RNA sequence: UCGUACUAGACGGGGAGGCAGCGGUGCCCUGUACCUGCAAUCCGCUAUAGCAGGGUUGAAUUCCCGUUCGAGGUUUUAGUAUGUGGUGUCUGCCCUUUACAAGUGGCAAUGACAAUUGGGUCUUGCGCAAUAGAAUUCUGUGAAUCUCGUCAGGUCCGGAAGGAAGCAGCGAUAAGCAGUAAAUUCUGUGUGCCGCUAGGUUACCUGAUUUGAGCUAACUGUAAAGGUAACGGCUAUAUACUUCUAUCGACAAUGGGUGUACGG
Numbered sequence: 001u002c003g004u005a006c007u008a009g010a011c012g013g014g015g016a017g018g019c020a021g022c023g024g025u026g027c028c029c030u031g032u033a034c035c036u037g038c039a040a041u042c043c044g045c046u047a048u049a050g051c052a053g054g055g056u057u058g059a060a061u062u063c064c065c066g067u068u069c070g071a072g073g074u075u076u077u078a079g080u081a082u083g084u085g086g087u088g089u090c091u092g093c094c095c096u097u098u099a100c101a102a103g104u105g106g107c108a109a110u111g112a113c114a115a116u117u118g119g120g121u122c123u124u125g126c127g128c129a130a131u132a133g134a135a136u137u138c139u140g141u142g143a144a145u146c147u148c149g150u151c152a153g154g155u156c157c158g159g160a161a162g163g164a165a166g167c168a169g170c171g172a173u174a175a176g177c178a179g180u181a182a183a184u185u186c187u188g189u190g191u192g193c194c195g196c197u198a199g200g201u202u203a204c205c206u207g208a209u210u211u212g213a214g215c216u217a218a219c220u221g222u223a224a225a226g227g228u229a230a231c232g233g234c235u236a237u238a239u240a241c242u243u244c245u246a247u248c249g250a251c252a253a254u255g256g257g258u259g260u261a262c263g264g
Stems, first nucleotide, its partner, number of pairs: 001264006009057003012030004017025001019023001034054005063257006072248003078242010091229002095226006103219002105216003114210008122199002125196003128190002131188005136181001138179004147172004155164003
Source information
Shown here is a 264-nucleotide sequence from Ruminiclostridium cellulolyticum, a member of the family "Bacterial large signal recognition particle RNA". The signal recognition particle (SRP) is a universally conserved ribonucleoprotein involved in the co-translational targeting of proteins to membranes. It scores 219 bits against the family's covariance model. The family's RNA type in Rfam is non-coding RNA gene. Taxonomically the source falls in Ruminiclostridium cellulolyticum (Bacteria, Bacillota, Clostridia, Oscillospiraceae).